Rfam assigns this 114-nucleotide sequence from Chitinophaga cymbidii to the family "SAM riboswitch aptamer (S box leader)". Taxonomically the source falls in Chitinophaga (Bacteria, Pseudomonadati, Chitinophagia, Chitinophagales). About the family: The SAM riboswitch is found upstream of a number of genes which code for proteins involved in methionine or cysteine biosynthesis in Gram-positive bacteria. The SAM riboswitch acts at the level of transcription termination control. The predicted structure consists of a complex stem-loop region followed by a single stem loop terminator region. Gene Ontology term of the family: regulation of gene expression.
[Rfam]
RNA sequence: UACUUAUCCAGAAAGGCAGAGGGUACUGGCCCUGCGAAGCCUUAGCAACCUAUUCCGCCACCGGCGGAAAAAAGGUGCUAAUUCCGGCCUCCGGCAACGGGGGAAAGAUAAGUU
Numbered sequence: 001u002a003c004u005u006a007u008c009c010a011g012a013a014a015g016g017c018a019g020a021g022g023g024u025a026c027u028g029g030c031c032c033u034g035c036g037a038a039g040c041c042u043u044a045g046c047a048a049c050c051u052a053u054u055c056c057g058c059c060a061c062c063g064g065c066g067g068a069a070a071a072a073a074g075g076u077g078c079u080a081a082u083u084c085c086g087g088c089c090u091c092c093g094g095c096a097a098c099g100g101g102g103g104a105a106a107g108a109u110a111a112g113u114u
Stems, first nucleotide, its partner, number of pairs: 002113007013043005021032003026087004044079004049075002051071001053069005083106001088103006